THF (Tetrahydrofolate) riboswitch aptamer: a 91-nucleotide RNA sequence from Streptococcus pasteurianus. Rfam 15.1 lists 747 matches to the family in 747 species. It scores 75 bits against the family's covariance model. The base pairs follow the family's consensus structure, which is taken from published work. About the family: Tetrahydrofolate (THF) riboswitch was first reported for Ames et al. as an RNA motif in 5' untranslated (5'-UTR)regions of folate transport and biosynthesis genes in Firmicutes genomes.

[Rfam]
Nucleotides: 091
Stems, first nucleotide, its partner, number of pairs: 002090004010079009019069003025054002028052007038085005058066003
Number, partner (000 for none) and nucleotide at each position: 001000c002090a003089c004088a005087g006000a007000g008000u009000a010079g011078a012077u013076g014075a015074u016073u017072u018071g019069c020068g021067u022000u023000a024000a025054g026053u027000g028052u029051g030050u031049g032048u033047g034046a035000a036000u037000g038085g039084g040083a041082u042081g043000u044000u045000g046034u047033c048032a049031c050030a051029c052028a053026a054025c055000g056000a057000a058066g059065c060064a061000a062000u063000u064060u065059g066058c067021g068020c069019g070000g071018u072017g073016a074015a075014u076013c077012a078011u079010u080000g081042c082041a083040u084039c085038c086000g087005c088004u089003g090002u091000u